[Rfam]
RNA: Small nucleolar RNA SNORA11
Organism: Tursiops truncatus
RNA sequence: UAGAUGUGCUCAGAGCAGGAAGCCGGAAGAAAUGGUUCCUCUGUUUACAACACACCCAACAGGAAUCAUUGUAACAAGGGGCUCAAAACUUGUGGCCUUCCUAUAAAUAAAUACCCUACAGGU
Numbered sequence: 001u002a003g004a005u006g007u008g009c010u011c012a013g014a015g016c017a018g019g020a021a022g023c024c025g026g027a028a029g030a031a032a033u034g035g036u037u038c039c040u041c042u043g044u045u046u047a048c049a050a051c052a053c054a055c056c057c058a059a060c061a062g063g064a065a066u067c068a069u070u071g072u073a074a075c076a077a078g079g080g081g082c083u084c085a086a087a088a089c090u091u092g093u094g095g096c097c098u099u100c101c102u103a104u105a106a107a108u109a110a111a112u113a114c115c116c117u118a119c120a121g122g123u
Base pairs, nucleotide, nucleotide: 003056005054006053007052008051013046014045015044016043017042018041019040022036023035024034066113070109071108072107076104078098079097080096082094084092085091086090